T-box leader: a 292-nucleotide RNA sequence from Paenibacillus mucilaginosus. A reference for the family is Grundy et al. (2000), "tRNA determinants for transcription antitermination of the Bacillus subtilis tyrS gene", RNA. It is annotated as a cis-regulatory leader. The family has 48 seed sequences and 19,395 matches in Rfam 15.1. Uncharged tRNA acts as the effector for transcription antitermination of genes in the T-box leader family.
RNA sequence: AUGCAGGCGUUGACAGGGAGAGUAGGUCGCUUCCCCGUACGUGCAGAGAGCCGGUGGCUGGUGCGAACCGGACGUAUGAAGAGACCGAAACACACCCUUGAGCCGUGUCCCGAACCCGCUCUGCGCAAUCAGCGCGGCAGCCCAGUAGGCGGCACCGGAAACUUCCACCGUUAUCAGCGGAAGAGGGGUUAGUUGUUGUGACCCCUGUCGAGAGAUGCUGUGCUCCCCUUCUGCGGAAGACCGGGGUGCAGUGUAACAUGGGUGGUACCGCGAGCCGAGCCUCGUCCCGUAA
Dot-bracket structure: ......((......((((......((((.(........(((.........(((((...........))))).))).....).))))........))))...))..((((((....................................)).)))).(((.........)))............................................((((((((((((................))))))))))))....((((.......(((((......)))))))))...